Record summary: Small nucleolar RNA R16: a 92-nucleotide RNA from Cannabis sativa. The organism belongs to Cannabis, within Eukaryota. The family's RNA type in Rfam is C/D-box small nucleolar RNA. Gene Ontology terms of the family: RNA processing and nucleolus.
RNA sequence: GCAGGCAUGUGAUGAAAAAAAUACAAUCACUUAUACUACACACUGAAUAUUCAAAUGUAGAUAACAAAUUCUCUCUAAUUUCUGAUGCCUAU
Numbered sequence: 001g002c003a004g005g006c007a008u009g010u011g012a013u014g015a016a017a018a019a020a021a022u023a024c025a026a027u028c029a030c031u032u033a034u035a036c037u038a039c040a041c042a043c044u045g046a047a048u049a050u051u052c053a054a055a056u057g058u059a060g061a062u063a064a065c066a067a068a069u070u071c072u073c074u075c076u077a078a079u080u081u082c083u084g085a086u087g088c089c090u091a092u
Stems, first nucleotide, its partner, number of pairs: 003090005